[Rfam]
RNA sequence: ACUGCAGGAUUGCGCAUAUUAGUGUUCUGCUCUUAGAUAUGCUUUUCUUGUUGAAAAUGUUUCCUGCUAUAUUAGUAAUUCUGAGAAAAUUGGCAGUUAGAUUCUGCUAAAGGCUUUCAUUGAGAACAUUAACAAUUAUUUUGGUGUAUUUC
Numbered sequence: 001a002c003u004g005c006a007g008g009a010u011u012g013c014g015c016a017u018a019u020u021a022g023u024g025u026u027c028u029g030c031u032c033u034u035a036g037a038u039a040u041g042c043u044u045u046u047c048u049u050g051u052u053g054a055a056a057a058u059g060u061u062u063c064c065u066g067c068u069a070u071a072u073u074a075g076u077a078a079u080u081c082u083g084a085g086a087a088a089a090u091u092g093g094c095a096g097u098u099a100g101a102u103u104c105u106g107c108u109a110a111a112g113g114c115u116u117u118c119a120u121u122g123a124g125a126a127c128a129u130u131a132a133c134a135a136u137u138a139u140u141u142u143g144g145u146g147u148a149u150u151u152c
Stems, first nucleotide, its partner, number of pairs: 004067005009061001014042006082146002086142005092136001096133004
RNA: small nucleolar RNA snoR135